[Rfam]
RNA sequence: UGAAUAGCGGGCGAUGGAGUUCGCCUUGAAUUCCGUAUAAACGGUAAUGACUCCUACCACCUA
Numbered sequence: 001u002g003a004a005u006a007g008c009g010g011g012c013g014a015u016g017g018a019g020u021u022c023g024c025c026u027u028g029a030a031u032u033c034c035g036u037a038u039a040a041a042c043g044g045u046a047a048u049g050a051c052u053c054c055u056a057c058c059a060c061c062u063a
Base pairs, nucleotide, nucleotide: 010025011024012023013022016054017053018052019051020050021049033044034043035042036041
Background: Rfam assigns this 63-nucleotide RNA from Propionispora sp. 2/2-37 to the family "Fluoride riboswitch aptamer (crcB RNA motif)". The family's consensus secondary structure is taken from published work. Taxonomically the source falls in Propionispora (Bacteria, Bacillati, Bacillota, Selenomonadales). Rfam links the family to the GO terms positive regulation of gene expression and response to fluoride.